[Rfam]
RNA sequence: AAGGAUCUUCGGGGCGGGGUGAAAGUCCCCACCGGCGGUGAUGCGGCCAGGCGAAAGCCGGCCGACGAGCCCGCGAGCCGAGCGAAGCCCAGGGCGAGAGCGCCAGGGGCCUCGCAGAGCAGGAGCUGGUGCGAUCCCAGCGCCGACGGUGACAGUCCGGAUGAGAGAAGGUCCGG
Numbered sequence: 001a002a003g004g005a006u007c008u009u010c011g012g013g014g015c016g017g018g019g020u021g022a023a024a025g026u027c028c029c030c031a032c033c034g035g036c037g038g039u040g041a042u043g044c045g046g047c048c049a050g051g052c053g054a055a056a057g058c059c060g061g062c063c064g065a066c067g068a069g070c071c072c073g074c075g076a077g078c079c080g081a082g083c084g085a086a087g088c089c090c091a092g093g094g095c096g097a098g099a100g101c102g103c104c105a106g107g108g109g110c111c112u113c114g115c116a117g118a119g120c121a122g123g124a125g126c127u128g129g130u131g132c133g134a135u136c137c138c139a140g141c142g143c144c145g146a147c148g149g150u151g152a153c154a155g156u157c158c159g160g161a162u163g164a165g166a167g168a169a170g171g172u173c174c175g176g
Stems, first nucleotide, its partner, number of pairs: 003174008017029003031156002033145002035074004069143002079119001125141005147159003
Rfam assigns this 176-nucleotide RNA sequence from Amphiplicatus metriothermophilus to the family "FMN riboswitch aptamer (RFN element)".